Source information: Rfam assigns this 223-nucleotide RNA from Finegoldia magna to the family "HNH endonuclease-associated RNA and ORF (HEARO) RNA". The sequence is in the family's curated seed alignment. Lineage of the source: Bacteria > Bacillati > Bacillota > Tissierellales > Finegoldia magna.

[Rfam]
Nucleotides: 223
Base pairs, nucleotide, nucleotide: 001056002055003054004053005052006051007050008049010028011027012025016023017022059209060208061207063205064082065081066080067079068078085203086202087201088200090197091196092195093194094193104139105138108133109132110131111130112129113128114127115126119217120216121215122214123213124212141185142184143183144182145181146180147179148178149177153176155173156172157171158170159168160167
Number, partner (000 for none) and nucleotide at each position: 001056g002055u003054c004053a005052a006051u007050u008049a009000c010028c011027c012025c013000a014000c015000g016023a017022c018000u019000a020000a021000a022017g023016u024000c025012g026000g027011g028010g029000c030000u031000u032000g033000u034000c035000u036000u037000a038000a039000c040000a041000a042000a043000c044000a045000g046000c047000c048000c049008u050007a051006g052005u053004u054003g055002a056001u057000u058000a059209g060208a061207c062000u063205a064082a065081g066080c067079a068078c069000u070000u071000a072000u073000g074000u075000u076000a077000u078068g079067u080066g081065c082064u083000a084000c085203g086202u087201u088200a089000c090197u091196u092195g093194u094193a095000a096000a097000u098000a099000u100000a101000u102000a103000g104139u105138u106000a107000c108133c109132a110131a111130g112129g113128a114127a115126u116000g117000u118000u119217u120216u121215a122214c123213c124212u125000a126115g127114u128113u129112c130111c131110u132109u133108g134000c135000u136000c137000u138105a139104a140000g141185a142184u143183a144182u145181g146180u147179g148178a149177u150000u151000a152000a153176a154000a155173g156172a157171c158170c159168u160167a161000a162000g163000g164000g165000g166000u167160u168159g169000u170158g171157g172156u173155c174000g175000g176153u177149g178148u179147u180146g181145c182144a183143u184142a185141u186000a187000c188000a189000a190000a191000a192000c193094u194093a195092c196091a197090a198000g199000a200088u201087a202086a203085c204000a205063u206000u207061g208060u209059c210000g211000a212124a213123g214122g215121u216120a217119a218000c219000a220000u221000u222000a223000c
A reference for the family is Weinberg et al. (2009), "Exceptional structured noncoding RNAs revealed by bacterial metagenome analysis", Nature.